[Rfam]
RNA sequence: AGGCAGCCCCCCAUGCAAAUCAGAAUUGCAGGAGAGGUGUUAAUCUGCUCGAAAAUCAUUUGAUCUUUUGUUCUUCAGACUUGCUGAACCCUUCCAUGAAGCUGGUCUAGUAAAACCUAAGCACAAU
Numbered sequence: 001a002g003g004c005a006g007c008c009c010c011c012c013a014u015g016c017a018a019a020u021c022a023g024a025a026u027u028g029c030a031g032g033a034g035a036g037g038u039g040u041u042a043a044u045c046u047g048c049u050c051g052a053a054a055a056u057c058a059u060u061u062g063a064u065c066u067u068u069u070g071u072u073c074u075u076c077a078g079a080c081u082u083g084c085u086g087a088a089c090c091c092u093u094c095c096a097u098g099a100a101g102c103u104g105g106u107c108u109a110g111u112a113a114a115a116c117c118u119a120a121g122c123a124c125a126a127u
Stems, first nucleotide, its partner, number of pairs: 002041004007037002009034001011032002014030005065121003070116003077108005083102003088092001
Background:
This 127-nucleotide RNA from Protea cynaroides belongs to the Rfam family "Small nucleolar RNA snoR77". The family's RNA type in Rfam is H/ACA-box small nucleolar RNA. Taxonomically the source falls in Protea (Eukaryota, Streptophyta, Tracheophyta, Spermatophyta). A reference for the family is Marker et al. (2002), "Experimental RNomics: identification of 140 candidates for small non-messenger RNAs in the plant Arabidopsis thaliana", Curr Biol.